This 114-nucleotide RNA from Devosia sp. Root413D1 belongs to the Rfam family "TPP riboswitch aptamer (THI element)". Vitamin B(1) in its active form thiamin pyrophosphate (TPP) is an essential coenzyme that is synthesised by coupling of pyrimidine and thiazole moieties in bacteria. Rfam links the family to the GO term thiamine pyrophosphate binding.
[Rfam]
RNA sequence: CGCCAUCCACAGGGGUGCUCCGUAUUGCCGGGGCUGAGAUGCGGCACGCUAAGUGCGCGGACCCUAAAGCUGAUCUGGGUAAUACCAGCGGAGCGAGGCGGGCGAUGUUUUCCG
Numbered sequence: 001c002g003c004c005a006u007c008c009a010c011a012g013g014g015g016u017g018c019u020c021c022g023u024a025u026u027g028c029c030g031g032g033g034c035u036g037a038g039a040u041g042c043g044g045c046a047c048g049c050u051a052a053g054u055g056c057g058c059g060g061a062c063c064c065u066a067a068a069g070c071u072g073a074u075c076u077g078g079g080u081a082a083u084a085c086c087a088g089c090g091g092a093g094c095g096a097g098g099c100g101g102g103c104g105a106u107g108u109u110u111u112c113c114g
Stems, first nucleotide, its partner, number of pairs: 006102003010098001011065004016059001017034005041058003069094003075088004
Dot-bracket structure: .....(((.(((((.((((((........)))))......(((............))))..))))...(((...((((......))))...)))...).)))............